[Rfam]
The family of this 136-nucleotide sequence from Leptobrachium leishanense is "Small nucleolar RNA U109".
It scores 86 bits against the family's covariance model.
Lineage of the source: Eukaryota > Opisthokonta > Amphibia > Megophryidae > Leptobrachium.
RNA sequence: CUGCAUGUGGAGUUCUAUUUUGUUCCUCUUCCUCCGUGGGGGGCAAAUUUGCCUAUCGCAUGCAACAGUCAAAGGAGUUAUCAGGGCUGCCAGACGUAAAGUACAGGCUGCGUGGUAGUAUAUCACUCCUACAUAU
Numbered sequence: 001c002u003g004c005a006u007g008u009g010g011a012g013u014u015c016u017a018u019u020u021u022g023u024u025c026c027u028c029u030u031c032c033u034c035c036g037u038g039g040g041g042g043g044c045a046a047a048u049u050u051g052c053c054u055a056u057c058g059c060a061u062g063c064a065a066c067a068g069u070c071a072a073a074g075g076a077g078u079u080a081u082c083a084g085g086g087c088u089g090c091c092a093g094a095c096g097u098a099a100a101g102u103a104c105a106g107g108c109u110g111c112g113u114g115g116u117a118g119u120a121u122a123u124c125a126c127u128c129c130u131a132c133a134u135a136u
Stems, first nucleotide, its partner, number of pairs: 003063006021045008074129004086116002090112001091110003095106001